RNA sequence: AUCUACUCCGUACUUUCGUUUGUAUAUAUAUGCCCGCUCAUCACACUCAGGUUCGGCUGAAGAGGACCUAAGUGGUCCUAGAACGGCCUGAGGUAGAGGGGUUUUAGUUGGUAGGUCCGAGGACACCUUCCUCGGGAAUCCGACACUACCCAGUCGUACGGACGGCUGGGUGUCUUUUGAAGAUUUCUCCUCUUCCACG
Numbered sequence: 001a002u003c004u005a006c007u008c009c010g011u012a013c014u015u016u017c018g019u020u021u022g023u024a025u026a027u028a029u030a031u032g033c034c035c036g037c038u039c040a041u042c043a044c045a046c047u048c049a050g051g052u053u054c055g056g057c058u059g060a061a062g063a064g065g066a067c068c069u070a071a072g073u074g075g076u077c078c079u080a081g082a083a084c085g086g087c088c089u090g091a092g093g094u095a096g097a098g099g100g101g102u103u104u105u106a107g108u109u110g111g112u113a114g115g116u117c118c119g120a121g122g123a124c125a126c127c128u129u130c131c132u133c134g135g136g137a138a139u140c141c142g143a144c145a146c147u148a149c150c151c152a153g154u155c156g157u158a159c160g161g162a163c164g165g166c167u168g169g170g171u172g173u174c175u176u177u178u179g180a181a182g183a184u185u186u187c188u189c190c191u192c193u194u195c196c197a198c199g
Stems, first nucleotide, its partner, number of pairs: 038066002075198002092196002095193002098189003107144005116136008146172001148171005
Dot-bracket structure: .....................................((.........................))........((...............((.((.(((......(((((....((((((((.....))))))))...))))).(.(((((..............))))))..............)))..)).)))).
RNA: R2 RNA element